[Rfam]
RNA: Ribosomal protein L20 leader
Organism: Fictibacillus enclensis
RNA sequence: GAAACAAAGCAGAAGCACCCGCUUCUCACCUGUUCAACGCAAAUGCAGUUGGCUGGUCAACCGAACUUUCAGAGAUGAUUGAGGUAGUGUGGGUGCAGUAUGCGCCGACGCUUUUUUAUUUGU
Number, nucleotide and partner (000 for none) at each position: 001g000002a000003a000004a000005c000006a000007a000008a000009g000010c000011a026012g025013a024014a023015g022016c021017a000018c000019c000020c000021g016022c015023u014024u013025c012026u011027c000028a057029c056030c055031u000032g000033u000034u000035c000036a050037a049038c048039g046040c045041a000042a000043a000044u000045g040046c039047a000048g038049u037050u036051g000052g000053c000054u000055g030056g029057u028058c000059a000060a000061c000062c000063g000064a000065a000066c000067u000068u000069u000070c000071a000072g000073a000074g000075a000076u000077g000078a000079u000080u000081g000082a000083g000084g000085u000086a000087g000088u110089g109090u108091g000092g106093g105094u104095g103096c102097a101098g000099u000100a000101u097102g096103c095104g094105c093106c092107g000108a090109c089110g088111c000112u000113u000114u000115u000116u000117u000118a000119u000120u000121u000122g000123u000